A member of the RNA family "DnaX ribosomal frameshifting element" from Enterobacterales bacterium CwR94, 62 nucleotides long.
It is annotated as a frameshift element.
NCBI's taxonomy places the organism under Bacteria, Pseudomonadati, Pseudomonadota, Gammaproteobacteria, Enterobacterales.
It scores 54 bits against the family's covariance model.
From the family's description: This family represents a ribosomal frameshifting element found in the mRNA of the dnaX gene in E. coli. The dnaX gene has two encoded products tau and gamma which are produced in a 1:1 ratio. The gamma protein is synthesised due to programmed frameshifting and is shorter than tau.

RNA sequence: AGCAAGAGGCGCCCAAACCAAAAAAGAGUGAGCCGGCAGCGCCAGGAGCGCGGCCGGCAAGU
Numbered sequence: 001a002g003c004a005a006g007a008g009g010c011g012c013c014c015a016a017a018c019c020a021a022a023a024a025a026g027a028g029u030g031a032g033c034c035g036g037c038a039g040c041g042c043c044a045g046g047a048g049c050g051c052g053g054c055c056g057g058c059a060a061g062u
Stems, first nucleotide, its partner, number of pairs: 032058006039051002